[Rfam]
RNA sequence: UUCAGCAGUUCGCCGGCUAAAACCGGUCACGUCCUGUGACCAUCGCCGGCACUAGAACAUCCUGUUCG
Dot-bracket structure: ...........((((((........(((((.....)))))....))))))....((((.....)))).
The family of this 68-nucleotide RNA from Salibacterium qingdaonense is "Bacillaceae-1 RNA". The match comes from Rfam's covariance-model search (50 bits).